This 127-nucleotide RNA from Mus musculus belongs to the Rfam family "Small nucleolar RNA SNORA17".
Rfam describes the family as follows. snoRNA ACA 17 belongs to the H/ACA family of snoRNAs and is predicted to guide pseudouridylation of the 28S rRNA at positions U4659 and U4598. It shares the same host gene together with ACA43. NB This family has a high threshold value to exclude a large number of closely related sequences that do not appear to have conserved H and ACA boxes, and may be pseudogenes.
Its family is annotated with nucleolus and RNA processing in the Gene Ontology.
RNA sequence: UCUGCUCUUAGAGAUAUUGCAGGCUGCUGUGCCACAUGCAAACCAGUAAGUCACAGUGAGGAGACAGGCUCUGUCUAUGCUCAGUGUUCUGACCUAUGAUCAUCUGAAUGAUUAGUAGCCUAAUACU
Numbered sequence: 001u002c003u004g005c006u007c008u009u010a011g012a013g014a015u016a017u018u019g020c021a022g023g024c025u026g027c028u029g030u031g032c033c034a035c036a037u038g039c040a041a042a043c044c045a046g047u048a049a050g051u052c053a054c055a056g057u058g059a060g061g062a063g064a065c066a067g068g069c070u071c072u073g074u075c076u077a078u079g080c081u082c083a084g085u086g087u088u089c090u091g092a093c094c095u096a097u098g099a100u101c102a103u104c105u106g107a108a109u110g111a112u113u114a115g116u117a118g119c120c121u122a123a124u125a126c127u
Stems, first nucleotide, its partner, number of pairs: 002056003007050004013044001015042001017041004022033003063124001066121005072115001078110002081107004085102002088099002